Group II catalytic intron D1-D4-3: a 174-nucleotide RNA sequence from Pedobacter nutrimenti.
On this family, see Bonen and Vogel, Trends Genet 2001: "The ins and outs of group II introns".
The base pairs follow the family's consensus structure.
Group II introns are found in rRNA, tRNA and mRNA of organelles in fungi, plants and protists, and also in mRNA in bacteria.
NCBI's taxonomy places the organism under Bacteria, Sphingobacteriia, Sphingobacteriales, Sphingobacteriaceae, Pedobacter.
Gene Ontology term of the family: Group II intron splicing.
A search with the family's covariance model found it, with a score of 141 bits.

[Rfam]
RNA sequence: UCGUGGGUGACUGCGAAUCUGAAGGAAGCAGGCGACAAAAGUUCGGACCGACGAACAGGAACUGUAUACCAAGGCGGUGUCAUAUGGGUGAUGUUGCAAAAGAAACAAAAGCCCUAUACUGUACGAAAUAUGAUGACGUAGAUACAGCGGUUAGAUGAACGGAAAGCGGAUGAU
Numbered sequence: 001u002c003g004u005g006g007g008u009g010a011c012u013g014c015g016a017a018u019c020u021g022a023a024g025g026a027a028g029c030a031g032g033c034g035a036c037a038a039a040a041g042u043u044c045g046g047a048c049c050g051a052c053g054a055a056c057a058g059g060a061a062c063u064g065u066a067u068a069c070c071a072a073g074g075c076g077g078u079g080u081c082a083u084a085u086g087g088g089u090g091a092u093g094u095u096g097c098a099a100a101a102g103a104a105a106c107a108a109a110a111g112c113c114c115u116a117u118a119c120u121g122u123a124c125g126a127a128a129u130a131u132g133a134u135g136a137c138g139u140a141g142a143u144a145c146a147g148c149g150g151u152u153a154g155a156u157g158a159a160c161g162g163a164a165a166g167c168g169g170a171u172g173a174u
Stems, first nucleotide, its partner, number of pairs: 001016006028174001031171001036166001041160005046152005062147006074139003078135007086114004092107004